[Rfam]
RNA sequence: AGAGAAAAAUGGCAAACUUACUGAAAGGUAAGGACGCAAAACCACGGGUCUAAUGUAUGAAGGAAAAUGCGAUGAUAGCCGGGCUACCUCA
Numbered sequence: 001a002g003a004g005a006a007a008a009a010u011g012g013c014a015a016a017c018u019u020a021c022u023g024a025a026a027g028g029u030a031a032g033g034a035c036g037c038a039a040a041a042c043c044a045c046g047g048g049u050c051u052a053a054u055g056u057a058u059g060a061a062g063g064a065a066a067a068u069g070c071g072a073u074g075a076u077a078g079c080c081g082g083g084c085u086a087c088c089u090c091a
Base pairs, nucleotide, nucleotide: 012037013036017032018031019030020029021028022027040085042083043082045081046080047079048076049075050074055070056069057068058067

c-di-GMP-I riboswitch aptamer: a 91-nucleotide sequence from Litchfieldia stipae. Rfam's curators write: GEMM was predicted in a large-scale screen for bacterial structured RNA regulatory elements. NCBI's taxonomy places the organism under Bacteria, Bacillati, Bacilli, Bacillaceae, Litchfieldia.